[Rfam]
RNA: Small nucleolar RNA snoR138
RNA sequence: AUAGCCUCCGAAUAACUAGAAAGUGAAAUAUAGGAACACUUUCUGGUUCAGACAGAGGCUUAUAUCAAAACUCGAAUCAGUUUUUGAGGGUAAAAGAGUUCUACUCUUUUUUACCCUUCAAAUCUUUCAUUCCUUUUUGUUGGAUAGAUUCGAAUAUGU
Numbered sequence: 001a002u003a004g005c006c007u008c009c010g011a012a013u014a015a016c017u018a019g020a021a022a023g024u025g026a027a028a029u030a031u032a033g034g035a036a037c038a039c040u041u042u043c044u045g046g047u048u049c050a051g052a053c054a055g056a057g058g059c060u061u062a063u064a065u066c067a068a069a070a071c072u073c074g075a076a077u078c079a080g081u082u083u084u085u086g087a088g089g090g091u092a093a094a095a096g097a098g099u100u101c102u103a104c105u106c107u108u109u110u111u112u113a114c115c116c117u118u119c120a121a122a123u124c125u126u127u128c129a130u131u132c133c134u135u136u137u138u139g140u141u142g143g144a145u146a147g148a149u150u151c152g153a154a155u156a157u158g159u
Stems, first nucleotide, its partner, number of pairs: 003060006014048008023039003073152006081122003086117001088115001090114001093111006131144003